RNA sequence: UGCAGCAACCGAAUAUGUGUCAAUAUAGUUUCGGAUAGAUGGCCCGAAUGUUUCUACCGUAACGCCGACCAGUUACGACUAUUGAUUCAAACUAAGCACGA
Numbered sequence: 001u002g003c004a005g006c007a008a009c010c011g012a013a014u015a016u017g018u019g020u021c022a023a024u025a026u027a028g029u030u031u032c033g034g035a036u037a038g039a040u041g042g043c044c045c046g047a048a049u050g051u052u053u054c055u056a057c058c059g060u061a062a063c064g065c066c067g068a069c070c071a072g073u074u075a076c077g078a079c080u081a082u083u084g085a086u087u088c089a090a091a092c093u094a095a096g097c098a099c100g101a
Stems, first nucleotide, its partner, number of pairs: 019086007030048005058077006
RNA: Purine riboswitch aptamer